[Rfam]
RNA sequence: GCAAGCUGCAAUGUCACACUUGGGAUGCACAUACAGAGUACAGCGUAUUGAUUUUAUAAAUUAAUACUCAGUUACUCUAUCCAUCUCGGGAAGGUCUGAGUAAAGGGCACGGUGAAAUAUAGUAGCCAUUCCUCCUAGCCGGAGGCGUUGUUUAAAACAAUGGCAGGGCACCAGAAACUAUGACUUUAUGGUUAGUCAAGGACUCCAUAGAAAAAAUGUACAGAAAUUCAUAACUAUGACCGUAUUCUGCAGUUGAUUCCACAAUAUAGAAAUAUCUUUAAUUACGCCAGAGACCUCUUGUGUUAGAUAUAUGUAUAAUUUUAUAUGUGACAAAAAUCUAACUAAAUAUAUAAAAUUCAAAGUCCUGACUGACUGGUAUAUCGACACAGCCAAAAAAGCUGGGGUUAACUUGGAAUUUUGUCAGCAGGUUUCUUUUAUGAUGAAACCGCACACUAAUAAAAGAUAUUUCUGACUACCGACUAAAGAAAGGAUAUAUUUUGACAAUGGUAAACUGUUGGAAUUUCUUCUUUAAAAUUUGUAUUUCUGUCGUAUUGAAGAAUAGCAUUAUAUAUAGCUUAGUUAAAGAGUUCAAAUAACAUUCUUCUAUGGAUGAGAUGUAAACCUAAUUAUCAUUGGAAGUACCCUGUGUCCAGCGGUUUUAGUUUGAUCUGUGACGCGGCGUUUAUGUCGUAACUCAAUUCAGACUAGUCUUUGGCUUGC
Numbered sequence: 001g002c003a004a005g006c007u008g009c010a011a012u013g014u015c016a017c018a019c020u021u022g023g024g025a026u027g028c029a030c031a032u033a034c035a036g037a038g039u040a041c042a043g044c045g046u047a048u049u050g051a052u053u054u055u056a057u058a059a060a061u062u063a064a065u066a067c068u069c070a071g072u073u074a075c076u077c078u079a080u081c082c083a084u085c086u087c088g089g090g091a092a093g094g095u096c097u098g099a100g101u102a103a104a105g106g107g108c109a110c111g112g113u114g115a116a117a118u119a120u121a122g123u124a125g126c127c128a129u130u131c132c133u134c135c136u137a138g139c140c141g142g143a144g145g146c147g148u149u150g151u152u153u154a155a156a157a158c159a160a161u162g163g164c165a166g167g168g169c170a171c172c173a174g175a176a177a178c179u180a181u182g183a184c185u186u187u188a189u190g191g192u193u194a195g196u197c198a199a200g201g202a203c204u205c206c207a208u209a210g211a212a213a214a215a216a217u218g219u220a221c222a223g224a225a226a227u228u229c230a231u232a233a234c235u236a237u238g239a240c241c242g243u244a245u246u247c248u249g250c251a252g253u254u255g256a257u258u259c260c261a262c263a264a265u266a267u268a269g270a271a272a273u274a275u276c277u278u279u280a281a282u283u284a285c286g287c288c289a290g291a292g293a294c295c296u297c298u299u300g301u302g303u304u305a306g307a308u309a310u311a312u313g314u315a316u317a318a319u320u321u322u323a324u325a326u327g328u329g330a331c332a333a334a335a336a337u338c339u340a341a342c343u344a345a346a347u348a349u350a351u352a353a354a355a356u357u358c359a360a361a362g363u364c365c366u367g368a369c370u371g372a373c374u375g376g377u378a379u380a381u382c383g384a385c386a387c388a389g390c391c392a393a394a395a396a397a398g399c400u401g402g403g404g405u406u407a408a409c410u411u412g413g414a415a416u417u418u419u420g421u422c423a424g425c426a427g428g429u430u431u432c433u434u435u436u437a438u439g440a441u442g443a444a445a446c447c448g449c450a451c452a453c454u455a456a457u458a459a460a461a462g463a464u465a466u467u468u469c470u471g472a473c474u475a476c477c478g479a480c481u482a483a484a485g486a487a488a489g490g491a492u493a494u495a496u497u498u499u500g501a502c503a504a505u506g507g508u509a510a511a512c513u514g515u516u517g518g519a520a521u522u523u524c525u526u527c528u529u530u531a532a533a534a535u536u537u538g539u540a541u542u543u544c545u546g547u548c549g550u551a552u553u554g555a556a557g558a559a560u561a562g563c564a565u566u567a568u569a570u571a572u573a574g575c576u577u578a579g580u581u582a583a584a585g586a587g588u589u590c591a592a593a594u595a596a597c598a599u600u601c602u603u604c605u606a607u608g609g610a611u612g613a614g615a616u617g618u619a620a621a622c623c624u625a626a627u628u629a630u631c632a633u634u635g636g637a638a639g640u641a642c643c644c645u646g647u648g649u650c651c652a653g654c655g656g657u658u659u660u661a662g663u664u665u666g667a668u669c670u671g672u673g674a675c676g677c678g679g680c681g682u683u684u685a686u687g688u689c690g691u692a693a694c695u696c697a698a699u700u701c702a703g704a705c706u707a708g709u710c711u712u713u714g715g716c717u718u719g720c
Base pairs, nucleotide, nucleotide: 001720002719003718004717008713010711013675014674015673016672017671018670022087023086024085025084026083036077037076038075039074040073041071096703097702098701099700100699105651106650107649108648131145132144133143134142135141146162147161148160149159150158151157163647164646165645166644167643168642181632182631183630676691677690678689679688680687681686

Shown here is a 720-nucleotide RNA sequence from Pararge aegeria, a member of the family "Nuclear RNase P". A search with the family's covariance model found it, with a score of 51 bits. The family has 116 seed sequences and 3,848 matches in Rfam 15.1.